[Rfam]
RNA sequence: AACGGGUAAAUACUGGCACGGGCGAAGAGGGUUCCUCUCCGCCCGUGCACGCAUGUUAAGGGGCUGAACAACACC
Numbered sequence: 001a002a003c004g005g006g007u008a009a010a011u012a013c014u015g016g017c018a019c020g021g022g023c024g025a026a027g028a029g030g031g032u033u034c035c036u037c038u039c040c041g042c043c044c045g046u047g048c049a050c051g052c053a054u055g056u057u058a059a060g061g062g063g064c065u066g067a068a069c070a071a072c073a074c075c
Base pairs, nucleotide, nucleotide: 003015004014005013016048017047018046019045020044021043022042023041024040026038027037028036029035
About this RNA
tpke11: a 75-nucleotide RNA from Klebsiella indica. For this family Rfam cites "Computational identification of noncoding RNAs in E. coli by comparative genomics" (Rivas et al., Curr Biol, 2001). The match comes from Rfam's covariance-model search (76 bits). It is annotated as a small RNA. In Yersinia located in ICR upstream dnaJ (chaperone)gene. Has temperature responsive RNA structure.